[Rfam]
Rfam assigns this 591-nucleotide part of an RNA from Terfezia boudieri to the family "Eukaryotic small subunit ribosomal RNA". Its family is annotated with structural constituent of ribosome and ribosome in the Gene Ontology. It scores 1315 bits against the family's covariance model. NCBI's taxonomy places the organism under Eukaryota, Opisthokonta, Fungi, Dikarya, Terfezia boudieri. Clan: SSU clan.

RNA sequence: CACAGGCCGCCGUUAACUGUCAGUUUGUCUUUAGGUAAUUAGCAGCAUCGGACGCCGCAAAGGCAAACUGAUAUCGUUACAGAUGUAGUUAUUAUUUAUUUGAUGAUACUUUACUACUUGGAUAACCAUGGUAAUUCUAGAGCUAAUCCAUACAUAAAAGUCCCGACCCCUGGAAGGGAUGUAUUUAUUAGAUAAAAAACCAAUGCCUUCGGGCUCUUUGGUGAUUCAUAGUAACUUAACGAAUCGUAUAGCCUUCUACUGGCGAUGGUUCAUUCAAAUUUCUGCCCUAUCAACUUUCGAUGGUAGGAUAUAGGCCUACCAUAGUUUCAAUGGGUAACAGGGAAUUAGGGUUCUAUUCUGGAGAGGGAGCCUGAGAAAUAGCUACCAUAUCCAAGGAAGGCAGCAGGCAUACAAAUUACCUAAUCCCGAUAUGGGGAGGUAGUGACAAUAAAUACUGAUACAGGUGGUUUUAUGCCUCUUGUAAUUGGAAUGAGUACAAUUUAAAUCUCUUAACGAGGAACAAUUAGAGGGCAAGUCUAGUGCCAGCAGCUAUGGUAAUUCUAGCUCUAAUAGUAUAUCUUAAAGUUAUUG
Numbered sequence: 001c002a003c004a005g006g007c008c009g010c011c012g013u014u015a016a017c018u019g020u021c022a023g024u025u026u027g028u029c030u031u032u033a034g035g036u037a038a039u040u041a042g043c044a045g046c047a048u049c050g051g052a053c054g055c056c057g058c059a060a061a062g063g064c065a066a067a068c069u070g071a072u073a074u075c076g077u078u079a080c081a082g083a084u085g086u087a088g089u090u091a092u093u094a095u096u097u098a099u100u101u102g103a104u105g106a107u108a109c110u111u112u113a114c115u116a117c118u119u120g121g122a123u124a125a126c127c128a129u130g131g132u133a134a135u136u137c138u139a140g141a142g143c144u145a146a147u148c149c150a151u152a153c154a155u156a157a158a159a160g161u162c163c164c165g166a167c168c169c170c171u172g173g174a175a176g177g178g179a180u181g182u183a184u185u186u187a188u189u190a191g192a193u194a195a196a197a198a199a200c201c202a203a204u205g206c207c208u209u210c211g212g213g214c215u216c217u218u219u220g221g222u223g224a225u226u227c228a229u230a231g232u233a234a235c236u237u238a239a240c241g242a243a244u245c246g247u248a249u250a251g252c253c254u255u256c257u258a259c260u261g262g263c264g265a266u267g268g269u270u271c272a273u274u275c276a277a278a279u280u281u282c283u284g285c286c287c288u289a290u291c292a293a294c295u296u297u298c299g300a301u302g303g304u305a306g307g308a309u310a311u312a313g314g315c316c317u318a319c320c321a322u323a324g325u326u327u328c329a330a331u332g333g334g335u336a337a338c339a340g341g342g343a344a345u346u347a348g349g350g351u352u353c354u355a356u357u358c359u360g361g362a363g364a365g366g367g368a369g370c371c372u373g374a375g376a377a378a379u380a381g382c383u384a385c386c387a388u389a390u391c392c393a394a395g396g397a398a399g400g401c402a403g404c405a406g407g408c409a410u411a412c413a414a415a416u417u418a419c420c421u422a423a424u425c426c427c428g429a430u431a432u433g434g435g436g437a438g439g440u441a442g443u444g445a446c447a448a449u450a451a452a453u454a455c456u457g458a459u460a461c462a463g464g465u466g467g468u469u470u471u472a473u474g475c476c477u478c479u480u481g482u483a484a485u486u487g488g489a490a491u492g493a494g495u496a497c498a499a500u501u502u503a504a505a506u507c508u509c510u511u512a513a514c515g516a517g518g519a520a521c522a523a524u525u526a527g528a529g530g531g532c533a534a535g536u537c538u539a540g541u542g543c544c545a546g547c548a549g550c551u552a553u554g555g556u557a558a559u560u561c562u563a564g565c566u567c568u569a570a571u572a573g574u575a576u577a578u579c580u581u582a583a584a585g586u587u588a589u590u591g
Stems, first nucleotide, its partner, number of pairs: 077362002085285004091279002095277002101272003119150002126142001129139003160180005167173002185234006199222004205214003244265004249261003286334003293325003300322008338360004342353004365386002368383003388399001390397002416441001418440003424436005456487003459483006466476003494514002496511001498510001524570006537564004546553001